RNA sequence: CCCUUCUCAACAACAAGUUCUGUGUCGCAACGAUCCCGUCCUCCCAUCGUUCCUUCGGGGGCAUGGGAUGUGUUCGGUCGAUUGUUGCGAACGUCUCGACUAUUCCUGUGGAGAUAUUAUCGCACUUCCAUUAAUGUCCAACCCAGUCGACAGAACUGAAAUCGACCCGAGACCCUUUCGCGCCCUCCGGGCAAGGUCGGCCUUGAGCUCGCCUCCCUGAGGUUGAACUCGGCCGGCUGAAAGCGGUGUGUAGGGAGACGUCUUAUUCCCAAGCUUGGUGUUGAUCCUCGUCGAGGAAUGAUCACCGGGCAAAACCAAGGCUAUUGUCUACAUAC
Numbered sequence: 001c002c003c004u005u006c007u008c009a010a011c012a013a014c015a016a017g018u019u020c021u022g023u024g025u026c027g028c029a030a031c032g033a034u035c036c037c038g039u040c041c042u043c044c045c046a047u048c049g050u051u052c053c054u055u056c057g058g059g060g061g062c063a064u065g066g067g068a069u070g071u072g073u074u075c076g077g078u079c080g081a082u083u084g085u086u087g088c089g090a091a092c093g094u095c096u097c098g099a100c101u102a103u104u105c106c107u108g109u110g111g112a113g114a115u116a117u118u119a120u121c122g123c124a125c126u127u128c129c130a131u132u133a134a135u136g137u138c139c140a141a142c143c144c145a146g147u148c149g150a151c152a153g154a155a156c157u158g159a160a161a162u163c164g165a166c167c168c169g170a171g172a173c174c175c176u177u178u179c180g181c182g183c184c185c186u187c188c189g190g191g192c193a194a195g196g197u198c199g200g201c202c203u204u205g206a207g208c209u210c211g212c213c214u215c216c217c218u219g220a221g222g223u224u225g226a227a228c229u230c231g232g233c234c235g236g237c238u239g240a241a242a243g244c245g246g247u248g249u250g251u252a253g254g255g256a257g258a259c260g261u262c263u264u265a266u267u268c269c270c271a272a273g274c275u276u277g278g279u280g281u282u283g284a285u286c287c288u289c290g291u292c293g294a295g296g297a298a299u300g301a302u303c304a305c306c307g308g309g310c311a312a313a314a315c316c317a318a319g320g321c322u323a324u325u326g327u328c329u330a331c332a333u334a335c
Stems, first nucleotide, its partner, number of pairs: 016157008024092002027088004032083004036077003040070001042068006049062005100149001102147003110138002113135001115133001177252001179250001183248001187246003199234004205230003209226002211223005257328003260321005273310005280302001286296004
This 335-nucleotide sequence from Exophiala spinifera belongs to the Rfam family "A. fumigatus sRNA Afu_309". A reference for the family is Jochl et al. (2008), "Small ncRNA transcriptome analysis from Aspergillus fumigatus suggests a novel mechanism for regulation of protein synthesis", Nucleic Acids Res. The organism belongs to Exophiala, within Eukaryota. Rfam classes the family as a small RNA.